mir-2774 microRNA precursor family: a 67-nucleotide sequence from Bombyx mori.
Pairs were carried over by alignment from the consensus structure, which was predicted with RNAalifold.
It scores 76 bits against the family's covariance model.

[Rfam]
RNA sequence: ACAAUAUUCGGGCCGUCGGUCUACCGAGCAAUAUCACCAACUCAGUGGAAGAUCUUCCCUUUGUCAU
Numbered sequence: 001a002c003a004a005u006a007u008u009c010g011g012g013c014c015g016u017c018g019g020u021c022u023a024c025c026g027a028g029c030a031a032u033a034u035c036a037c038c039a040a041c042u043c044a045g046u047g048g049a050a051g052a053u054c055u056u057c058c059c060u061u062u063g064u065c066a067u
Stems, first nucleotide, its partner, number of pairs: 004064003010058003015053003020049005026043003